RNA sequence: UAGGAAAUCUUUGUUGGUCAAAAUUUGGUAGGAAAUUUCCUACCAAAAACUUUCAAAAAAAACUUUGUAGGAAAUUUCCUACCAAAAACUUU
Number, nucleotide and partner (000 for none) at each position: 001u000002a000003g000004g000005a000006a000007a000008u000009c000010u000011u000012u087013g000014u085015u084016g083017g082018u000019c000020a080021a077022a076023a075024u074025u073026u045027g044028g043029u042030a041031g040032g000033a000034a000035a000036u000037u000038u000039c000040c031041u030042a029043c028044c027045a026046a000047a000048a000049a000050c071051u070052u069053u000054c000055a000056a000057a000058a000059a000060a000061a000062a000063c000064u000065u000066u000067g000068u000069a052070g051071g050072a000073a025074a024075u023076u022077u021078c000079c000080u020081a000082c017083c016084a015085a014086a000087a012088a000089c000090u000091u000092u000

This 92-nucleotide sequence from Capsella rubella belongs to the Rfam family "rpsL sRNA". On this family, see Meyer et al., BMC Genomics 2009: "Identification of candidate structured RNAs in the marine organism 'Candidatus Pelagibacter ubique'". Rfam classes the family as a small RNA. NCBI's taxonomy places the organism under Eukaryota, Magnoliopsida, Brassicaceae, Camelineae, Capsella. A search with the family's covariance model found it, with a score of 38 bits. Rfam 15.1 lists 52 matches to the family in 49 species.